RNA sequence: GUUCGAUCUUGUUAUGGCGAGGCUCCUGAGCAAAAACAAGUUACCGCCCUGAUGGUGUCGAGAGAGACCACACAGGGAAAUACAGGCAUCCAUCGAAUCAAGGUGUUGCCAAGGUAACUUCCGGCGUGUUUAUCGCGGAUACGUUGCUCAGUGCUAAAACCGGGACGUAGGGAUCUUCU
Numbered sequence: 001g002u003u004c005g006a007u008c009u010u011g012u013u014a015u016g017g018c019g020a021g022g023c024u025c026c027u028g029a030g031c032a033a034a035a036a037c038a039a040g041u042u043a044c045c046g047c048c049c050u051g052a053u054g055g056u057g058u059c060g061a062g063a064g065a066g067a068c069c070a071c072a073c074a075g076g077g078a079a080a081u082a083c084a085g086g087c088a089u090c091c092a093u094c095g096a097a098u099c100a101a102g103g104u105g106u107u108g109c110c111a112a113g114g115u116a117a118c119u120u121c122c123g124g125c126g127u128g129u130u131u132a133u134c135g136c137g138g139a140u141a142c143g144u145u146g147c148u149c150a151g152u153g154c155u156a157a158a159a160c161c162g163g164g165a166c167g168u169a170g171g172g173a174u175c176u177u178c179u
Stems, first nucleotide, its partner, number of pairs: 005175006011166002013101001016161002021155003026151008040118005047077004056067001058065002085110004092104003120139003
RNA: M-box riboswitch aptamer (ykoK leader)
Organism: Kosakonia cowanii